[Rfam]
RNA sequence: AUGAAGCUCUUUUGGCAAAAAUCCAUCAAUGGUUCUUGAUUCAUGAAGAAGCAUGGAUUAACAGUGUGAGAGGGUCCUCACCCCUCACACUCCACCACUUCCAACAGUUUGUUUUGGUUUUAGCUAUUGGCUUCUGUAAUCACCAAGGGAUAGCAUACAUAGUAUUAAUCUCUAUGACUAACAGAAGCAUAUAAGCAUUCUCCAUUGGAGCAAAGGCUUUCUUUGGCUACAGCUAGGGCAAGCCGGCAAGUCAUCACAAAAAGGCAUGGACUCCAUUAGGGGUCCU
Numbered sequence: 001a002u003g004a005a006g007c008u009c010u011u012u013u014g015g016c017a018a019a020a021a022u023c024c025a026u027c028a029a030u031g032g033u034u035c036u037u038g039a040u041u042c043a044u045g046a047a048g049a050a051g052c053a054u055g056g057a058u059u060a061a062c063a064g065u066g067u068g069a070g071a072g073g074g075u076c077c078u079c080a081c082c083c084c085u086c087a088c089a090c091u092c093c094a095c096c097a098c099u100u101c102c103a104a105c106a107g108u109u110u111g112u113u114u115u116g117g118u119u120u121u122a123g124c125u126a127u128u129g130g131c132u133u134c135u136g137u138a139a140u141c142a143c144c145a146a147g148g149g150a151u152a153g154c155a156u157a158c159a160u161a162g163u164a165u166u167a168a169u170c171u172c173u174a175u176g177a178c179u180a181a182c183a184g185a186a187g188c189a190u191a192u193a194a195g196c197a198u199u200c201u202c203c204a205u206u207g208g209a210g211c212a213a214a215g216g217c218u219u220u221c222u223u224u225g226g227c228u229a230c231a232g233c234u235a236g237g238g239c240a241a242g243c244c245g246g247c248a249a250g251u252c253a254u255c256a257c258a259a260a261a262a263g264g265c266a267u268g269g270a271c272u273c274c275a276u277u278a279g280g281g282g283u284c285c286u
Stems, first nucleotide, its partner, number of pairs: 066095002107243006127231001269284005